[Rfam]
RNA: t44 RNA
Organism: Rheinheimera sp. F8
RNA sequence: CAAACUUAAGUUAAACAACACACAUACAUCGUCACAUAAGCCGGGGUGCUGAAGCUCGCUUCAGUCGGAUCUAUGGGAUGUAUGGAGGCCUAAC
Numbered sequence: 001c002a003a004a005c006u007u008a009a010g011u012u013a014a015a016c017a018a019c020a021c022a023c024a025u026a027c028a029u030c031g032u033c034a035c036a037u038a039a040g041c042c043g044g045g046g047u048g049c050u051g052a053a054g055c056u057c058g059c060u061u062c063a064g065u066c067g068g069a070u071c072u073a074u075g076g077g078a079u080g081u082a083u084g085g086a087g088g089c090c091u092a093a094c
Stems, first nucleotide, its partner, number of pairs: 023084008035075004041068003048065005